[Rfam]
RNA sequence: GGGUCAUUUCAAAGAGGUCUUGUGGGGCUGUGAAACCAAGAGCUCUUAAUGCUCUACCUAAAGACUGGAGGUUCUCCAUGGACUGCCAUAAUCACUCAGUAGUGCUAUGUUUUCCCAAGGAGAUAGAAGA
Numbered sequence: 001g002g003g004u005c006a007u008u009u010c011a012a013a014g015a016g017g018u019c020u021u022g023u024g025g026g027g028c029u030g031u032g033a034a035a036c037c038a039a040g041a042g043c044u045c046u047u048a049a050u051g052c053u054c055u056a057c058c059u060a061a062a063g064a065c066u067g068g069a070g071g072u073u074c075u076c077c078a079u080g081g082a083c084u085g086c087c088a089u090a091a092u093c094a095c096u097c098a099g100u101a102g103u104g105c106u107a108u109g110u111u112u113u114c115c116c117a118a119g120g121a122g123a124u125a126g127a128a129g130a
Stems, first nucleotide, its partner, number of pairs: 002059002006055001014047004019042003023039001026037002073123005080116002088108003093104004
A member of the RNA family "Small nucleolar RNA SNORA25" from Sciurus vulgaris, 130 nucleotides long. Taxonomically the source falls in Sciurus (Eukaryota, Tetrapoda, Rodentia, Sciurini). From the family's description: ACA25 is a member of the H/ACA class of snoRNA that guide the sites of modification of uridines to pseudouridines. Rfam links the family to the GO terms RNA processing and nucleolus.